Rfam assigns this 176-nucleotide RNA from Massilia sp. Leaf139 to the family "Manganese Mn2+ riboswitch aptamer (yybP-ykoY)".
RNA sequence: UCGCCAUCCAUUGGGGAGUAGCCUGCUUCCGCAUCGCGCGGAAGUUCCCGUAUCAACAUACUCGGCGCCAUCCAUCCGGCGCCGUGGUACGGGCAGCCGUCCGGUUGGCAAGACCUUUGGCAUGCCUGCGUGCGAGUUCGGGCCGCGCGGGCUUGCCUUCGCGUAUGCCCGACGGA
Numbered sequence: 001u002c003g004c005c006a007u008c009c010a011u012u013g014g015g016g017a018g019u020a021g022c023c024u025g026c027u028u029c030c031g032c033a034u035c036g037c038g039c040g041g042a043a044g045u046u047c048c049c050g051u052a053u054c055a056a057c058a059u060a061c062u063c064g065g066c067g068c069c070a071u072c073c074a075u076c077c078g079g080c081g082c083c084g085u086g087g088u089a090c091g092g093g094c095a096g097c098c099g100u101c102c103g104g105u106u107g108g109c110a111a112g113a114c115c116u117u118u119g120g121c122a123u124g125c126c127u128g129c130g131u132g133c134g135a136g137u138u139c140g141g142g143c144c145g146c147g148c149g150g151g152c153u154u155g156c157c158u159u160c161g162c163g164u165a166u167g168c169c170c171g172a173c174g175g176a
Base pairs, nucleotide, nucleotide: 026044027043028042047093048092049091050090051089052088053087054086055085063084064083065082066081067080068079069078097175098174099173100172101171